[Rfam]
The family of this 214-nucleotide sequence from Pseudomonas sp. HAR-UPW-AIA-41 is "sucA-II RNA".
It scores 157 bits against the family's covariance model.
The base pairs follow the family's consensus structure, which is taken from published work.
It is annotated as a cis-regulatory element.

RNA sequence: CUGCGGCAUCGGUGAAGCCCGAUGCCGCAGUCUUAACUCCCCGGACCUCAGCUCACAAAGCCAAGGUUCUUACUGAAAGAAGACGACCAGCAGGGGCGACCGGGCUGGUACCCGGACUAUCUGCGGGACCCGUAGUGGCUUACCAAGUCGCUGCACUGGACUUUUUAAGCCGCGUGGUUUCACGCCGGUAGCGUCCCCUUAUCGAGGGUGACCU
Numbered sequence: 001c002u003g004c005g006g007c008a009u010c011g012g013u014g015a016a017g018c019c020c021g022a023u024g025c026c027g028c029a030g031u032c033u034u035a036a037c038u039c040c041c042c043g044g045a046c047c048u049c050a051g052c053u054c055a056c057a058a059a060g061c062c063a064a065g066g067u068u069c070u071u072a073c074u075g076a077a078a079g080a081a082g083a084c085g086a087c088c089a090g091c092a093g094g095g096g097c098g099a100c101c102g103g104g105c106u107g108g109u110a111c112c113c114g115g116a117c118u119a120u121c122u123g124c125g126g127g128a129c130c131c132g133u134a135g136u137g138g139c140u141u142a143c144c145a146a147g148u149c150g151c152u153g154c155a156c157u158g159g160a161c162u163u164u165u166u167a168a169g170c171c172g173c174g175u176g177g178u179u180u181c182a183c184g185c186c187g188g189u190a191g192c193g194u195c196c197c198c199u200u201a202u203c204g205a206g207g208g209u210g211a212c213c214u
Base pairs, nucleotide, nucleotide: 001030002029003028004027005026006025007024008023009022010021011020012019043069044068045067046066047065048064051061052060053059092199093198094197095196096195097193098192100115101114102113103112104111117191118190119189120188121187123185124184125183127181128180130177131176135173136172137171138170139169140168141167142166146162147161148160149159
Dot-bracket structure: ((((((((((((......))))))))))))............((((((..(((.....)))..))))))......................(((((((.(((((......))))).(((((.(((.((.((...((((((((...((((.........))))...))))))))..))..)).))).))))))).)))))...............